[Rfam]
RNA sequence: UUAUAGGAUGCUGUAGCUUUUGAACUGUUCUGCCACUCUCUGACAGAGAACAAUUUGUUCUUUGACAGACAGGGUGAAACAGUUCAAUAGCUAAAGCGUCCUAUAAC
Numbered sequence: 001u002u003a004u005a006g007g008a009u010g011c012u013g014u015a016g017c018u019u020u021u022g023a024a025c026u027g028u029u030c031u032g033c034c035a036c037u038c039u040c041u042g043a044c045a046g047a048g049a050a051c052a053a054u055u056u057g058u059u060c061u062u063u064g065a066c067a068g069a070c071a072g073g074g075u076g077a078a079a080c081a082g083u084u085c086a087a088u089a090g091c092u093a094a095a096g097c098g099u100c101c102u103a104u105a106a107c
Stems, first nucleotide, its partner, number of pairs: 001106006011096002014093005020087009029069004034064002049059004
RNA: mir-8517 microRNA precursor family